[Rfam]
RNA sequence: UUUGCUUCUUGACCUUUUGGCAAAGAUCAAGUGGAGCAUAUGUUUUUAUCAGUUUAAUAUCUGUUAUGUCCUCAACUUGAGGAUUUUAUAUUAAAUGAGUUUGGGGACUGGGAAAUGUACUAGGAGCUUACACCAUCCUCUCCAUGCGUGAAGCUGGCUAUUGCUGUGUUUCCAGAACGCUGUGAAAAAAAA
Numbered sequence: 001u002u003u004g005c006u007u008c009u010u011g012a013c014c015u016u017u018u019g020g021c022a023a024a025g026a027u028c029a030a031g032u033g034g035a036g037c038a039u040a041u042g043u044u045u046u047u048a049u050c051a052g053u054u055u056a057a058u059a060u061c062u063g064u065u066a067u068g069u070c071c072u073c074a075a076c077u078u079g080a081g082g083a084u085u086u087u088a089u090a091u092u093a094a095a096u097g098a099g100u101u102u103g104g105g106g107a108c109u110g111g112g113a114a115a116u117g118u119a120c121u122a123g124g125a126g127c128u129u130a131c132a133c134c135a136u137c138c139u140c141u142c143c144a145u146g147c148g149u150g151a152a153g154c155u156g157g158c159u160a161u162u163g164c165u166g167u168g169u170u171u172c173c174a175g176a177a178c179g180c181u182g183u184g185a186a187a188a189a190a191a192a
Stems, first nucleotide, its partner, number of pairs: 007026003013020002047066002050063003068084007111143003115139001117137001123134002126131001147184004154175004
This 192-nucleotide sequence from Meleagris gallopavo belongs to the Rfam family "U2 spliceosomal RNA". Gene Ontology terms of the family: mRNA branch site recognition, pre-mRNA branch point binding and U2 snRNP. A reference for the family is Zwieb (1997), "The uRNA database", Nucleic Acids Res. Pairs were carried over by alignment from the consensus structure, which is taken from published work. Lineage of the source: Eukaryota > Opisthokonta > Eumetazoa > Galliformes > Meleagris. Rfam classes the family as a spliceosomal small nuclear RNA. A search with the family's covariance model found it, with a score of 93 bits.